Annotation
A member of the RNA family "mir-172 microRNA precursor family" from Olea europaea, 80 nucleotides long. Lineage of the source: Eukaryota > Magnoliopsida > Gunneridae > Oleeae > Olea europaea. From the family's description: mir-172 has been experimentally verified in Arabidopsis thaliana. A search with the family's covariance model found it, with a score of 73 bits.
RNA sequence: UUGCUUGCAAAUGCAGUUUCAUCAAGAUUCACAUUGCUAUAGAGCAAUGAGAAUCUUGAUGAUGCUGCAUUAGCAAUUAU
Numbered sequence: 001u002u003g004c005u006u007g008c009a010a011a012u013g014c015a016g017u018u019u020c021a022u023c024a025a026g027a028u029u030c031a032c033a034u035u036g037c038u039a040u041a042g043a044g045c046a047a048u049g050a051g052a053a054u055c056u057u058g059a060u061g062a063u064g065c066u067g068c069a070u071u072a073g074c075a076a077u078u079a080u
Stems, first nucleotide, its partner, number of pairs: 010071008019062012032049007